[Rfam]
Nucleotides: 177
Base pairs, nucleotide, nucleotide: 007171008170009169010168011167017079018078019077020076021075022074025071033064034063035062036061037060038059083112084111085110086109087108089107090106091105092104093103094102113139114138116136117135118134119133120132121131122130123129141162142161143160144159145158146157147156
Number, partner (000 for none) and nucleotide at each position: 001000u002000a003000a004000a005000u006000a007171g008170a009169u010168a011167g012000a013000g014000g015000u016000u017079g018078c019077a020076a021075c022074c023000g024000a025071c026000a027000a028000a029000a030000u031000u032000a033064a034063c035062u036061a037060a038059u039000g040000g041000a042000g043000u044000u045000u046000g047000c048000c049000a050000a051000a052000c053000g054000g055000u056000g057000a058000a059038g060037u061036u062035a063034g064033u065000g066000a067000a068000a069000g070000g071025g072000a073000a074022g075021g076020u077019u078018g079017c080000c081000g082000a083112g084111g085110u086109g087108u088000u089107u090106u091105g092104g093103u094102u095000u096000g097000g098000g099000c100000a101000a102094a103093a104092u105091c106090a107089a108087a109086u110085g111084c112083c113139g114138g115000g116136c117135u118134a119133g120132c121131a122130a123129u124000u125000a126000a127000g128000a129123g130122u131121u132120g133119u134118u135117a136116g137000a138114c139113u140000g141162u142161c143160a144159c145158u146157g147156c148000u149000c150000a151000u152000a153000c154000a155000a156147g157146u158145a159144g160143u161142g162141g163000g164000g165000a166000g167011c168010u169009g170008u171007c172000g173000u174000u175000c176000g177000u
Annotation: The record is a 177-nucleotide RNA from Weissella viridescens, which matches "Lysine riboswitch aptamer" in Rfam. Pairs were carried over by alignment from the consensus structure, which is taken from published work.